[Rfam]
RNA: Small nucleolar RNA SNORA11
RNA sequence: CUGUAGCUCAGAGUAGGGGGCCUGAAGAAAUGGCUCCUUUGUUUACAACACACCCAACAGGAAUCUGGGUUCAUUGUAACAAGAGGCACAAAAUUUCUGGCCUUCUAUGAAUGAGUAUCCAACACAU
Numbered sequence: 001c002u003g004u005a006g007c008u009c010a011g012a013g014u015a016g017g018g019g020g021c022c023u024g025a026a027g028a029a030a031u032g033g034c035u036c037c038u039u040u041g042u043u044u045a046c047a048a049c050a051c052a053c054c055c056a057a058c059a060g061g062a063a064u065c066u067g068g069g070u071u072c073a074u075u076g077u078a079a080c081a082a083g084a085g086g087c088a089c090a091a092a093a094u095u096u097c098u099g100g101c102c103u104u105c106u107a108u109g110a111a112u113g114a115g116u117a118u119c120c121a122a123c124a125c126a127u
Stems, first nucleotide, its partner, number of pairs: 002052003006049001011044009020034003068120002071117001075113003080109002083103001085101001087099002090096002